[Rfam]
RNA sequence: ACGCUAAGCCGUUUAGUGGAUGGAUAGGCUCGGGCGCUGAAGAAGGUCGUGGCAAGCUGCGAUAAGCCUGGGCGAGGCGCAUGCAGCCUUUGAACCCAGGAUUACCUAAUAGGAAUCCCGCCACGGAAAACCCGUGGCACUCGCGGCAGCGAGAGGGAACCCCGCGAAAUGAAACAUCUUAGUAACGGGAGGAAGAAAAAGCGAAUGCGAUGCCCUUAGUAACGGCGAGUGAAAGGGGUAUAGGGCAAACCGAACCUGGUUGAGAAAUCAACUGGGGAUUUGGUGUUGUAGGACCCGGUUGCCACCUCCUUGACGAAGCUGAAGUCCUCUGGAACGUGGCGCCAAAGAGGGUGAUAGCCCUGUAAGUGUAAGUCAAAAGGUGUUGAACUGGGUAUCCUGAGUACUGUGCCUUGGAUAUGGCGCGGGAAGCUGGGAGGCAGCAACUCCCAACCCUAAAUACGUCCCGAGACCGAUAGUGAACGUAGUACCGUGAGGGAAAGCUGAAAAGGAUCUCGAAAGGGAGAUGAAAAGAGCCUGAAACUAGACGGUGUUAAAAG
Numbered sequence: 001a002c003g004c005u006a007a008g009c010c011g012u013u014u015a016g017u018g019g020a021u022g023g024a025u026a027g028g029c030u031c032g033g034g035c036g037c038u039g040a041a042g043a044a045g046g047u048c049g050u051g052g053c054a055a056g057c058u059g060c061g062a063u064a065a066g067c068c069u070g071g072g073c074g075a076g077g078c079g080c081a082u083g084c085a086g087c088c089u090u091u092g093a094a095c096c097c098a099g100g101a102u103u104a105c106c107u108a109a110u111a112g113g114a115a116u117c118c119c120g121c122c123a124c125g126g127a128a129a130a131c132c133c134g135u136g137g138c139a140c141u142c143g144c145g146g147c148a149g150c151g152a153g154a155g156g157g158a159a160c161c162c163c164g165c166g167a168a169a170u171g172a173a174a175c176a177u178c179u180u181a182g183u184a185a186c187g188g189g190a191g192g193a194a195g196a197a198a199a200a201g202c203g204a205a206u207g208c209g210a211u212g213c214c215c216u217u218a219g220u221a222a223c224g225g226c227g228a229g230u231g232a233a234a235g236g237g238g239u240a241u242a243g244g245g246c247a248a249a250c251c252g253a254a255c256c257u258g259g260u261u262g263a264g265a266a267a268u269c270a271a272c273u274g275g276g277g278a279u280u281u282g283g284u285g286u287u288g289u290a291g292g293a294c295c296c297g298g299u300u301g302c303c304a305c306c307u308c309c310u311u312g313a314c315g316a317a318g319c320u321g322a323a324g325u326c327c328u329c330u331g332g333a334a335c336g337u338g339g340c341g342c343c344a345a346a347g348a349g350g351g352u353g354a355u356a357g358c359c360c361u362g363u364a365a366g367u368g369u370a371a372g373u374c375a376a377a378a379g380g381u382g383u384u385g386a387a388c389u390g391g392g393u394a395u396c397c398u399g400a401g402u403a404c405u406g407u408g409c410c411u412u413g414g415a416u417a418u419g420g421c422g423c424g425g426g427a428a429g430c431u432g433g434g435a436g437g438c439a440g441c442a443a444c445u446c447c448c449a450a451c452c453c454u455a456a457a458u459a460c461g462u463c464c465c466g467a468g469a470c471c472g473a474u475a476g477u478g479a480a481c482g483u484a485g486u487a488c489c490g491u492g493a494g495g496g497a498a499a500g501c502u503g504a505a506a507a508g509g510a511u512c513u514c515g516a517a518a519g520g521g522a523g524a525u526g527a528a529a530a531g532a533g534c535c536u537g538a539a540a541c542u543a544g545a546c547g548g549u550g551u552u553a554a555a556a557g
Stems, first nucleotide, its partner, number of pairs: 008549009022535001023501001027471002029468006035461002044107004048061003067100006076088003112118002140153005160191001161189004171178002201208002212239005222230002242454004250283003260271004294392004304381002318367003324340001326339002329336001343347001349361003404425007432448005488495002
RNA: Archaeal large subunit ribosomal RNA, nucleotides 10 to 566
Organism: candidate division MSBL1 archaeon SCGC-AAA382A20